Rfam assigns this 156-nucleotide sequence from Streptomyces lincolnensis to the family "c-di-AMP riboswitch aptamer (ydaO/yuaA leader)".
Rfam describes the family as follows. This family represents a conserved RNA structure found upstream of the ydaO and yuaA genes in Bacillus subtilis and related genes in other bacteria.
[Rfam]
RNA sequence: CGUGCUCACGCGCCGAAUCCUGCAAGGAACCGGGGAACCAUCCCUUGGGGUGAAUCGCGCGGAUGCCACCGUGGAACCACGGUCGGUAUACGCGCGUAGGAGACCUUCCUGCUCCGAACCCGUCAGCUAACCCGGUAGGCGAUAAGGAAGGAAAGG
Numbered sequence: 001c002g003u004g005c006u007c008a009c010g011c012g013c014c015g016a017a018u019c020c021u022g023c024a025a026g027g028a029a030c031c032g033g034g035g036a037a038c039c040a041u042c043c044c045u046u047g048g049g050g051u052g053a054a055u056c057g058c059g060c061g062g063a064u065g066c067c068a069c070c071g072u073g074g075a076a077c078c079a080c081g082g083u084c085g086g087u088a089u090a091c092g093c094g095c096g097u098a099g100g101a102g103a104c105c106u107u108c109c110u111g112c113u114c115c116g117a118a119c120c121c122g123u124c125a126g127c128u129a130a131c132c133c134g135g136u137a138g139g140c141g142a143u144a145a146g147g148a149a150g151g152a153a154a155g156g
Stems, first nucleotide, its partner, number of pairs: 011141004018028003029136006039047002048121003056096006099115004